RNA: traJ-II RNA
Organism: Sphingobium wenxiniae
RNA sequence: GGGCAGGAUAGGUAAUGUUAGCUAACCCGCAAGCGGGCCAGCCAUCAUUACACCACCUUAUUCGCAGCGGGGCUGCUCAACGGUGAUCCUGCUCUACGAGGUC
Numbered sequence: 001g002g003g004c005a006g007g008a009u010a011g012g013u014a015a016u017g018u019u020a021g022c023u024a025a026c027c028c029g030c031a032a033g034c035g036g037g038c039c040a041g042c043c044a045u046c047a048u049u050a051c052a053c054c055a056c057c058u059u060a061u062u063c064g065c066a067g068c069g070g071g072g073c074u075g076c077u078c079a080a081c082g083g084u085g086a087u088c089c090u091g092c093u094c095u096a097c098g099a100g101g102u103c
Base pairs, nucleotide, nucleotide: 001094002093003092004091005090006089007088008087009086012051013050014049015048016047017046019044021042026037027036028035029034054085055084056083057082064076065075066074067073068072
Dot-bracket structure: (((((((((..((((((.(.(....((((....))))....).).))))))..((((......(((((...))))).....))))))))))))).........